[Rfam]
This 84-nucleotide RNA sequence from Lentivirus humimdef1 belongs to the Rfam family "HIV gag stem loop 3 (GSL3)". About the family: This family consists of several HIV gag stem loop 3 (GSL3) sequences. GSL3 is known to direct specific packaging of HIV-1 genomic RNA. Deletion of GSL3 leads to decreases in both viral RNA packaging and dimerisation. The sequence is in the family's curated seed alignment.
Nucleotides: 084
Stems, first nucleotide, its partner, number of pairs: 001084001003082006
Number, partner (000 for none) and nucleotide at each position: 001084g002000a003082c004081c005080a006079g007078g008077g009000g010000g011000a012000a013000a014000g015000a016000a017000a018000c019000a020000a021000u022000a023000u024000a025000g026000a027000a028000u029000g030000a031000a032000a033000c034000a035000u036000u037000u038000a039000g040000u041000a042000u043000g044000g045000g046000c047000a048000a049000g050000c051000a052000g053000a054000g055000a056000g057000u058000u059000a060000g061000a062000c063000a064000g065000a066000u067000u068000c069000g070000c071000a072000c073000u074000u075000g076000a077008c078007c079006c080005u081004g082003g083000c084001c